The family of this 57-nucleotide sequence from Streptomyces xinghaiensis is "L17-Actino-Proteobacteria ribosomal protein leader". For this family Rfam cites "Discovery of 20 novel ribosomal leader candidates in bacteria and archaea" (Eckert and Weinberg, BMC Microbiol, 2020). By type it is a cis-regulatory leader.
RNA sequence: CCGGCGGGCACGAGCCCGUACGGACACUGACACCGGUACCUGAUACGGCCGGUGCAG
Dot-bracket structure: ((((((((......))))).)))...(((.(((((((..........))))))))))